This 111-nucleotide RNA from Planococcus salinus belongs to the Rfam family "SAM riboswitch aptamer (S box leader)". It scores 87 bits against the family's covariance model. The organism belongs to Planococcus, within Bacteria.

RNA sequence: CUCUUAUCCAGAGUGGUGGAGGGACUUGGCCCUGUGAAACCCGGCAACCAGCAAGCGAUGCUUGAAAAGGUGCUAAUUCCAGCAGGUAGGCGACUACUUGGAAGAUAAGAG
Numbered sequence: 001c002u003c004u005u006a007u008c009c010a011g012a013g014u015g016g017u018g019g020a021g022g023g024a025c026u027u028g029g030c031c032c033u034g035u036g037a038a039a040c041c042c043g044g045c046a047a048c049c050a051g052c053a054a055g056c057g058a059u060g061c062u063u064g065a066a067a068a069g070g071u072g073c074u075a076a077u078u079c080c081a082g083c084a085g086g087u088a089g090g091c092g093a094c095u096a097c098u099u100g101g102a103a104g105a106u107a108a109g110a111g
Base pairs, nucleotide, nucleotide: 001111002110003109004108005107006106007105008104013042015041016040017039021032022031023030026082027081028080029079043074044073045072046071048070049069052064053063078103083100084099085098086097087096088095